[Rfam]
RNA sequence: AAAACGGCCCUUUUCAGGGCCACCAAAUUUUCACGAGAGUGAUAA
Numbered sequence: 001a002a003a004a005c006g007g008c009c010c011u012u013u014u015c016a017g018g019g020c021c022a023c024c025a026a027a028u029u030u031u032c033a034c035g036a037g038a039g040u041g042a043u044a045a
Stems, first nucleotide, its partner, number of pairs: 006021006
Histone 3' UTR stem-loop: a 45-nucleotide RNA sequence from Acanthosepion pharaonis. Rfam's curators write: The mRNAs of metazoan histone genes lack a poly-A tail. 3' end processing occurs at a site between a highly conserved stem-loop (modelled by this family) and a purine rich region around 20 nts downstream (the histone downstream element, or HDE). The stem-loop is bound by a 31 kDa stem-loop binding protein (SLBP - also termed the histone hairpin binding protein, or HBP). By type it is a cis-regulatory element. NCBI's taxonomy places the organism under Eukaryota, Spiralia, Mollusca, Sepiina, Acanthosepion.